[Rfam]
RNA sequence: UACUCUGAAAAGCUUAUAGCACCGAAGGAGCAAUUCUUGAAAAAGAAGAAUCUCUCAGGUUACAUAGACAGAGUG
Numbered sequence: 001u002a003c004u005c006u007g008a009a010a011a012g013c014u015u016a017u018a019g020c021a022c023c024g025a026a027g028g029a030g031c032a033a034u035u036c037u038u039g040a041a042a043a044a045g046a047a048g049a050a051u052c053u054c055u056c057a058g059g060u061u062a063c064a065u066a067g068a069c070a071g072a073g074u075g
Stems, first nucleotide, its partner, number of pairs: 001075007014019001021060003024056002028054003034047002
The record is a 75-nucleotide RNA sequence from Gottschalkia purinilytica, which matches "Glycine riboswitch aptamer" in Rfam. The match comes from Rfam's covariance-model search (39 bits). Lineage of the source: Bacteria > Bacillota > Tissierellales > Gottschalkiaceae > Gottschalkia.